[Rfam]
RNA sequence: CAGCCGUGUGUUCAGCCCAGAGCGAACUAUUCUUUCGCCUUUUACUAAAGAAUACCGUGUGCGGGACACUAAAUCGGUUUCGACCAAUCUUUGGACCGCUCCCUUCCGGGAGCAC
Numbered sequence: 001c002a003g004c005c006g007u008g009u010g011u012u013c014a015g016c017c018c019a020g021a022g023c024g025a026a027c028u029a030u031u032c033u034u035u036c037g038c039c040u041u042u043u044a045c046u047a048a049a050g051a052a053u054a055c056c057g058u059g060u061g062c063g064g065g066a067c068a069c070u071a072a073a074u075c076g077g078u079u080u081c082g083a084c085c086a087a088u089c090u091u092u093g094g095a096c097c098g099c100u101c102c103c104u105u106c107c108g109g110g111a112g113c114a115c
Base pairs, nucleotide, nucleotide: 003078004077005076006075009068010067011066012065013064015062016061018059019058028054029053030052031051032050033049034048035047098113099112100111101110102109

Overview
This 115-nucleotide RNA from Marchantia polymorpha belongs to the Rfam family "U5 spliceosomal RNA". Rfam describes the family as follows. U5 RNA is a component of both types of known spliceosome. The precise function of this molecule is unknown, though it is known that the 5' loop is required for splice site selection and p220 binding, and that both the 3' stem-loop and the Sm site are important for Sm protein binding and cap methylation. Rfam classes the family as a spliceosomal small nuclear RNA. The match comes from Rfam's covariance-model search (85 bits). On this family, see Zwieb, Nucleic Acids Res 1997: "The uRNA database".